[Rfam]
The record is a 264-nucleotide RNA from Effusibacillus lacus, which matches "BsrG" in Rfam. It scores 100 bits against the family's covariance model. Rfam classes the family as a small RNA. Pairs were carried over by alignment from the consensus structure, which was predicted with WAR. Rfam describes the family as follows. bsrE, bsrG and bsrH pair through intermolecular interactions with antisense sRNAs.

RNA sequence: GUACAAUAGAACCGGCGCUUCAAGGGUGGCCGCGGCUGAUCCCCUUUGAAAGGGGGUGAUGCCAUGACAGUAUAUGAAGCAUUGUCCCUGAUGAUCGCAUUCGGGAUUUUGAUUGCUACAAAACUGUCUCAGAAUAAAAAGAAGUAGGUCACCCUUGAACUUUUUGGGGAAGUCCGGGUGACCUUGCUUCUACCUGCUCCACAAUUGAGCCGUGGCCCUUUGAGGGCGACUAUUGUACCUGACCGUAUGUUACCAGCACCUGCG
Dot-bracket structure: (((((.(((...((((..((((((((.(.(......(.(.(((((.....))))).).)......((((((........((..........))..........(.(..........).)...))))))..................).)..)))))))).................................................))))..((((.....))))..))).))))).....((((((((...))))..))))